[Rfam]
RNA sequence: UUGGCCCCUGUAUGGUAACGAGGGCUGUGGCUGGGCAGGGUGGCUCCUGUCCCCCCGCGGCUCUCGACCUACUUGGGGCCC
Numbered sequence: 001u002u003g004g005c006c007c008c009u010g011u012a013u014g015g016u017a018a019c020g021a022g023g024g025c026u027g028u029g030g031c032u033g034g035g036c037a038g039g040g041u042g043g044c045u046c047c048u049g050u051c052c053c054c055c056c057g058c059g060g061c062u063c064u065c066g067a068c069c070u071a072c073u074u075g076g077g078g079c080c081c
Stems, first nucleotide, its partner, number of pairs: 003080006014069003019066002022063009033052008
The family of this 81-nucleotide RNA is "SL588 non-coding RNA". For this family Rfam cites "The Coding Region of the HCV Genome Contains a Network of Regulatory RNA Structures" (Pirakitikulr et al., Mol Cell, 2016). It is one of the family's seed sequences.